RNA sequence: AAGGCGGCAUCCGAAAAGCCAUAAUAGAGUAGGAU
Numbered sequence: 001a002a003g004g005c006g007g008c009a010u011c012c013g014a015a016a017a018g019c020c021a022u023a024a025u026a027g028a029g030u031a032g033g034a035u
Base pairs, nucleotide, nucleotide: 003020004019005018010034011033012032
Dot-bracket structure: ..(((....[[[.....)))...........]]].
About this RNA
DUF805b RNA: a 35-nucleotide RNA. The sequence is in the family's curated seed alignment. The family's RNA type in Rfam is cis-regulatory element.